[Rfam]
RNA sequence: GCCAGAUGAUGAUGACCUGGGCAGAAACCCACCCUGUGGGCUGCCCAUGCCUGAGCCCCCUGGC
Numbered sequence: 001g002c003c004a005g006a007u008g009a010u011g012a013u014g015a016c017c018u019g020g021g022c023a024g025a026a027a028c029c030c031a032c033c034c035u036g037u038g039g040g041c042u043g044c045c046c047a048u049g050c051c052u053g054a055g056c057c058c059c060c061u062g063g064c
Stems, first nucleotide, its partner, number of pairs: 001064005014051001016049001018047006029039003
Shown here is a 64-nucleotide RNA sequence from Sciurus vulgaris, a member of the family "Selenocysteine insertion sequence 1". The literature on the family includes a 1996 paper in RNA by Walczak et al., "A novel RNA structural motif in the selenocysteine insertion element of eukaryotic selenoprotein mRNAs". The base pairs follow the family's consensus structure, which is taken from published work.